This 58-nucleotide RNA sequence from Edaphosphingomonas laterariae belongs to the Rfam family "terC RNA". The family's RNA type in Rfam is cis-regulatory element. The source organism's lineage runs through Bacteria, Pseudomonadati, Pseudomonadota, Rhizorhabdaceae and Edaphosphingomonas. The family has 129 seed sequences and 1,112 matches in Rfam 15.1.
RNA sequence: GUUGCGGGCCGGGCCCCUCUGGCGAUCGUUUCACCGGUCGCGAUGUCGGACCGCAUCG
Numbered sequence: 001g002u003u004g005c006g007g008g009c010c011g012g013g014c015c016c017c018u019c020u021g022g023c024g025a026u027c028g029u030u031u032c033a034c035c036g037g038u039c040g041c042g043a044u045g046u047c048g049g050a051c052c053g054c055a056u057c058g
Stems, first nucleotide, its partner, number of pairs: 006052002009049004022041007